[Rfam]
RNA sequence: UUGACCCGGUACGGCAUGGGCUCGGCGCGGGUCCAGGCGUCGAGGUCGAAGAACUGGCCGUCGCCGAUCACCUCGAGGACCGCGUCCUCGCCGUAGCGGCCGCUGACCCGCUUCUCGGCGCGGCCCUGGACGAGGACCCACAGCGUGUCGUGCGCAUCGCCGUCCUGGGCCAGCAUCUGUCCGGACUCGAAGGUGACCUCGGUGAAGGCCGCGGCGAGUUCGGCGAGCAGUGCGUCGUCGGCCUCCCGCAGAUACGGAAGUUCGCGCAGGUCGCCCGGGAUGAUGCGCGGCGAUCCGUUGUCGGUGUGGGUGCUGAUGCGGUCGUCGCCGAGGACGUAGGUGCGGCGGCGGUUGACGCGGAAGACGCCGGAUUCGACGUCCACCCAGGGCAGCGCACGCAGCAGAUAGCGCGGGGUGAUGCCGCGCAUCUGGGGGCUGGUCUUGGUGGUGGUCGCAAGCUGCCGUGCGGCAUCCGGGCCGAGACUCAUGCGGUCGUUCACG
Dot-bracket structure: .......(((.....((..(((((((((.....(.((((.((..((((.....((.((((..(.(......(.((...((.((......)).))..))).....).)......((((.((..((.((.(.((((.(.((....((....((.((.((.(..(.(....).)..))....).)).)).))..)))...)))).)..))))..)).))))..)))).))..((((((((((...(...((.(....((......))......)))...).))))))))))..)))).)).)))).).))....))))).)).))((((......))))........(((.(((.....................))).)))..)))(..((((.(((.(((.(.......))))..))).))))..).....(..(..((((.((.((.......)).))..))))..)..).(.(((.(((.(.....).))))))...)..
Numbered sequence: 001u002u003g004a005c006c007c008g009g010u011a012c013g014g015c016a017u018g019g020g021c022u023c024g025g026c027g028c029g030g031g032u033c034c035a036g037g038c039g040u041c042g043a044g045g046u047c048g049a050a051g052a053a054c055u056g057g058c059c060g061u062c063g064c065c066g067a068u069c070a071c072c073u074c075g076a077g078g079a080c081c082g083c084g085u086c087c088u089c090g091c092c093g094u095a096g097c098g099g100c101c102g103c104u105g106a107c108c109c110g111c112u113u114c115u116c117g118g119c120g121c122g123g124c125c126c127u128g129g130a131c132g133a134g135g136a137c138c139c140a141c142a143g144c145g146u147g148u149c150g151u152g153c154g155c156a157u158c159g160c161c162g163u164c165c166u167g168g169g170c171c172a173g174c175a176u177c178u179g180u181c182c183g184g185a186c187u188c189g190a191a192g193g194u195g196a197c198c199u200c201g202g203u204g205a206a207g208g209c210c211g212c213g214g215c216g217a218g219u220u221c222g223g224c225g226a227g228c229a230g231u232g233c234g235u236c237g238u239c240g241g242c243c244u245c246c247c248g249c250a251g252a253u254a255c256g257g258a259a260g261u262u263c264g265c266g267c268a269g270g271u272c273g274c275c276c277g278g279g280a281u282g283a284u285g286c287g288c289g290g291c292g293a294u295c296c297g298u299u300g301u302c303g304g305u306g307u308g309g310g311u312g313c314u315g316a317u318g319c320g321g322u323c324g325u326c327g328c329c330g331a332g333g334a335c336g337u338a339g340g341u342g343c344g345g346c347g348g349c350g351g352u353u354g355a356c357g358c359g360g361a362a363g364a365c366g367c368c369g370g371a372u373u374c375g376a377c378g379u380c381c382a383c384c385c386a387g388g389g390c391a392g393c394g395c396a397c398g399c400a401g402c403a404g405a406u407a408g409c410g411c412g413g414g415g416u417g418a419u420g421c422c423g424c425g426c427a428u429c430u431g432g433g434g435g436c437u438g439g440u441c442u443u444g445g446u447g448g449u450g451g452u453c454g455c456a457a458g459c460u461g462c463c464g465u466g467c468g469g470c471a472u473c474c475g476g477g478c479c480g481a482g483a484c485u486c487a488u489g490c491g492g493u494c495g496u497u498c499a500c501g
Stems, first nucleotide, its partner, number of pairs: 008384003016322002020319002022316005027307002034304001036302004041297002045294004054227002057224004063107001065105001072099001074098002079094002082091002114218004119213002123209002126207002129203001131201004136194001138193002144189002150186002153183002156180001157175001159174001162171001164169001230288010243277001247273002250271001255264002323336004345379003349375003385425001388422004393417003397412003401409001431470001434467001437464004442458002445455002472499001474495003478492003482488001

Source information:
Saccharopolyspora sRNA 350: a 501-nucleotide RNA from Streptomyces chattanoogensis. For this family Rfam cites "Prediction and characterization of small non-coding RNAs related to secondary metabolites in Saccharopolyspora erythraea" (Liu et al., PLoS One, 2013). By type it is an antisense RNA. Lineage of the source: Bacteria > Bacillati > Actinomycetota > Streptomycetaceae > Streptomyces. Its family is annotated with regulation of secondary metabolite biosynthetic process in the Gene Ontology.